A member of the RNA family "Bacterial large subunit ribosomal RNA" from Pseudoxanthomonas suwonensis, 508 nucleotides of a longer RNA. Lineage of the source: Bacteria > Pseudomonadota > Gammaproteobacteria > Lysobacteraceae > Pseudoxanthomonas suwonensis. Pairs were carried over by alignment from the consensus structure, which is taken from published work. It scores 2857 bits against the family's covariance model.
[Rfam]
RNA sequence: GAAUAAGCGCACACGGUGGAUGCCUUGGCGGUCAGAGGCGAUGAAGGACGUGACAGCCUGCGAAAAGCGCGGGGGAGCUGGCAAUAAGCUUUGAUCCCGCGAUGUCCGAAUGGGGAAACCCACUGCUUCGGCAGUAUCCUGCAGUGAAUACAUAGCUGCUGGAAGCGAACCCGGUGAACUGAAAUAUCUAAGUAACCGGAGGAAAAGAAAUCAACUGAGAUUCCCUAAGUAGCGACGAGCGAACGGGGACUAGCCCUUAAGCUGGGAUGGUUCUAGGAAAACAACCUGGAAAGGUUGGCCAUAGAAGGUGAUAGCCCUGUAUUCGAAAGGGCCACUCCAGUGAAGACGAGUAGGGCGGGGCACGUGAAACCCUGUCUGAACAUGGGGGGACCAUCCUCCAAGGCUAAAUACUCCUGACCGACCGAUAGUGAACCAGUACCGUGAGGGAAAGGCGAAAAGAACCCCGGAGAGGGGAGUGAAAUAGACCCUGAAACCGUGUGCGUACAAG
Numbered sequence: 001g002a003a004u005a006a007g008c009g010c011a012c013a014c015g016g017u018g019g020a021u022g023c024c025u026u027g028g029c030g031g032u033c034a035g036a037g038g039c040g041a042u043g044a045a046g047g048a049c050g051u052g053a054c055a056g057c058c059u060g061c062g063a064a065a066a067g068c069g070c071g072g073g074g075g076a077g078c079u080g081g082c083a084a085u086a087a088g089c090u091u092u093g094a095u096c097c098c099g100c101g102a103u104g105u106c107c108g109a110a111u112g113g114g115g116a117a118a119c120c121c122a123c124u125g126c127u128u129c130g131g132c133a134g135u136a137u138c139c140u141g142c143a144g145u146g147a148a149u150a151c152a153u154a155g156c157u158g159c160u161g162g163a164a165g166c167g168a169a170c171c172c173g174g175u176g177a178a179c180u181g182a183a184a185u186a187u188c189u190a191a192g193u194a195a196c197c198g199g200a201g202g203a204a205a206a207g208a209a210a211u212c213a214a215c216u217g218a219g220a221u222u223c224c225c226u227a228a229g230u231a232g233c234g235a236c237g238a239g240c241g242a243a244c245g246g247g248g249a250c251u252a253g254c255c256c257u258u259a260a261g262c263u264g265g266g267a268u269g270g271u272u273c274u275a276g277g278a279a280a281a282c283a284a285c286c287u288g289g290a291a292a293g294g295u296u297g298g299c300c301a302u303a304g305a306a307g308g309u310g311a312u313a314g315c316c317c318u319g320u321a322u323u324c325g326a327a328a329g330g331g332c333c334a335c336u337c338c339a340g341u342g343a344a345g346a347c348g349a350g351u352a353g354g355g356c357g358g359g360g361c362a363c364g365u366g367a368a369a370c371c372c373u374g375u376c377u378g379a380a381c382a383u384g385g386g387g388g389g390a391c392c393a394u395c396c397u398c399c400a401a402g403g404c405u406a407a408a409u410a411c412u413c414c415u416g417a418c419c420g421a422c423c424g425a426u427a428g429u430g431a432a433c434c435a436g437u438a439c440c441g442u443g444a445g446g447g448a449a450a451g452g453c454g455a456a457a458a459g460a461a462c463c464c465c466g467g468a469g470a471g472g473g474g475a476g477u478g479a480a481a482u483a484g485a486c487c488c489u490g491a492a493a494c495c496g497u498g499u500g501c502g503u504a505c506a507a508g
Base pairs, nucleotide, nucleotide: 007503008502009501010500011499012498013497014496015495016494022488023452024451027423028422029420030419031418032417033416034415035414036412037411038166039165046107047106048105049062050061051060068101069100070099071098072097073096074095077089078088079087112121113120114119122135123134124133125132126131137163138162139161141159142158143157144156145155170201171199172198173197174196175195181188182187211218212217221408222249223248224247225246226245232240233239252405253404254403255402262340263339264338265337266336268334269333270332271331272330273329274328276324277323278322282297283296284295285294286293300304306318307317308316353377354376355375356374357373358372359371360370384399385398386397387396388395439446440445462474463473464472465471